RNA: mir-148/mir-152 microRNA precursor family
RNA sequence: UCAAAGGAAAGUUCUCUGAUACACUUGGACUUUCUAUUUAUUACAGUCAGUGCAUCACAGAACUUUGUUUUGGG
Numbered sequence: 001u002c003a004a005a006g007g008a009a010a011g012u013u014c015u016c017u018g019a020u021a022c023a024c025u026u027g028g029a030c031u032u033u034c035u036a037u038u039u040a041u042u043a044c045a046g047u048c049a050g051u052g053c054a055u056c057a058c059a060g061a062a063c064u065u066u067g068u069u070u071u072g073g074g
Stems, first nucleotide, its partner, number of pairs: 004070003008066008022052004028048004